[Rfam]
About this RNA: This 340-nucleotide sequence from Gulosibacter sp. 10 belongs to the Rfam family "Bacterial RNase P class A". The family's consensus secondary structure is taken from published work. It is annotated as a ribozyme. Rfam links the family to the GO terms dimeric ribonuclease P complex, tRNA processing and ribonuclease P activity. Taxonomically the source falls in Gulosibacter (Bacteria, Bacillati, Actinomycetota, Microbacteriaceae).
RNA sequence: CGGGCCGGCCAGACGGUCGCGGGUCCACGACCCGAGGAACGUCCGGGCUCCGCAGAGCAGGAUGGUGGGUAACGCCCACCCGGGGCAACCCGCGAGAAAGUGCCACAGAGAGUAGACCGCCCGCAAGGGUAAGGGUGAAAGGGUGGGGUAAGAGCCCACCGGGUGCCCGGUGACGGGCAUCGCACGGUAAACCUCAUCCGGAGCAAGGCCAACAGGGGAUGUCGACGCUGCUCGCCGAGUCCCCGGGUGCGCUGCUGGAGCGGCGCGGCAACGCGUCGCCGAGAUAGAUGGCCGUCACGGCGUGUCCGUACAGAACCCGGCGUAUCGGCCGACCCGCUCA
Numbered sequence: 001c002g003g004g005c006c007g008g009c010c011a012g013a014c015g016g017u018c019g020c021g022g023g024u025c026c027a028c029g030a031c032c033c034g035a036g037g038a039a040c041g042u043c044c045g046g047g048c049u050c051c052g053c054a055g056a057g058c059a060g061g062a063u064g065g066u067g068g069g070u071a072a073c074g075c076c077c078a079c080c081c082g083g084g085g086c087a088a089c090c091c092g093c094g095a096g097a098a099a100g101u102g103c104c105a106c107a108g109a110g111a112g113u114a115g116a117c118c119g120c121c122c123g124c125a126a127g128g129g130u131a132a133g134g135g136u137g138a139a140a141g142g143g144u145g146g147g148g149u150a151a152g153a154g155c156c157c158a159c160c161g162g163g164u165g166c167c168c169g170g171u172g173a174c175g176g177g178c179a180u181c182g183c184a185c186g187g188u189a190a191a192c193c194u195c196a197u198c199c200g201g202a203g204c205a206a207g208g209c210c211a212a213c214a215g216g217g218g219a220u221g222u223c224g225a226c227g228c229u230g231c232u233c234g235c236c237g238a239g240u241c242c243c244c245g246g247g248u249g250c251g252c253u254g255c256u257g258g259a260g261c262g263g264c265g266c267g268g269c270a271a272c273g274c275g276u277c278g279c280c281g282a283g284a285u286a287g288a289u290g291g292c293c294g295u296c297a298c299g300g301c302g303u304g305u306c307c308g309u310a311c312a313g314a315a316c317c318c319g320g321c322g323u324a325u326c327g328g329c330c331g332a333c334c335c336g337c338u339c340a
Base pairs, nucleotide, nucleotide: 001336002335003334004333006331007330008329009328010327011325012296013295014294015293016292017291018290020034021033022032023031024030025029039323040322041321043320044319045318046317047316048203049202050201051200055233056232057231058230060199061198062197063196064195065079066078067077068076069075080094081092082091083090084089095194096193100192101191102188103187104186117134118133119130120129121128122127142160143159144158145157146156147155161183162181163180164179165178166177167176168175169174207253208252209251215244216243217242218241219240220239227235228234260279261278262277263276264275265274266273267272